[Rfam]
RNA sequence: AAUCUAAGGCUUGUUUCUCAAAACAUUCGCAGUGGCCGCCCAAGAGCUUUCGCCUUUGCAAGGCUCGAGAGCUAGUGCUGUUUUAUCCUUCCUUGGAUGUCUGAGAUU
Numbered sequence: 001a002a003u004c005u006a007a008g009g010c011u012u013g014u015u016u017c018u019c020a021a022a023a024c025a026u027u028c029g030c031a032g033u034g035g036c037c038g039c040c041c042a043a044g045a046g047c048u049u050u051c052g053c054c055u056u057u058g059c060a061a062g063g064c065u066c067g068a069g070a071g072c073u074a075g076u077g078c079u080g081u082u083u084u085a086u087c088c089u090u091c092c093u094u095g096g097a098u099g100u101c102u103g104a105g106a107u108u
Base pairs, nucleotide, nucleotide: 001108002107003106004105046072047071048070049069050068051067
RNA: Small nucleolar RNA SNORD14
Organism: Trifolium medium